[Rfam]
MIR1435 microRNA precursor family: a 199-nucleotide RNA from Oryza punctata.
Nucleotides: 199
Base pairs, nucleotide, nucleotide: 005194006193007192008191009190011188012187013186014185015184016183018181019180020179022177023176024175025174026173031168032167033166035164045154046153047152048151049150050149051148057142059140060139062137063136064135065134067132068131072126073125074124075123
Number, partner (000 for none) and nucleotide at each position: 001000u002000g003000g004000g005194u006193u007192u008191g009190u010000u011188c012187u013186a014185a015184g016183u017000a018181a019180a020179g021000c022177u023176u024175c025174u026173u027000c028000a029000a030000g031168u032167u033166u034000a035164a036000c037000c038000a039000g040000g041000c042000u043000u044000a045154u046153a047152g048151a049150a050149a051148a052000a053000u054000g055000c056000u057142g058000c059140a060139a061000a062137a063136u064135u065134u066000u067132c068131a069000a070000c071000a072126c073125a074124a075123a076000a077000c078000a079000a080000a081000u082000a083000u084000a085000c086000u087000u088000a089000a090000a091000a092000g093000u094000a095000u096000a097000u098000u099000c100000g101000a102000u103000g104000g105000u106000g107000g108000a109000u110000u111000u112000a113000a114000u115000g116000a117000a118000a119000c120000u121000a122000a123075u124074u125073u126072g127000g128000u129000g130000u131068u132067g133000u134065a135064g136063a137062u138000g139060u140059u141000g142057c143000u144000a145000u146000g147000c148051u149050u150049u151048u152047c153046u154045a155000u156000a157000a158000a159000c160000u161000u162000g163000g164035u165000a166033a167032a168031a169000c170000u171000u172000g173026a174025a175024g176023a177022a178000a179020u180019u181018u182000g183016a184015c185014u186013u187012a188011g189000g190009a191008c192007a193006a194005a195000c196000c197000u198000a199000a

The base pairs follow the family's consensus structure, which was predicted with RNAalifold.